[Rfam]
RNA sequence: UGACCGCCACAACGGCUUCCUGGCGUGGCGGCGUCAUUUCAACGGAGCA
Numbered sequence: 001u002g003a004c005c006g007c008c009a010c011a012a013c014g015g016c017u018u019c020c021u022g023g024c025g026u027g028g029c030g031g032c033g034u035c036a037u038u039u040c041a042a043c044g045g046a047g048c049a
Stems, first nucleotide, its partner, number of pairs: 004031007013022002015048003019045002
RNA: SAM/SAH riboswitch aptamer
Organism: Paracoccus denitrificans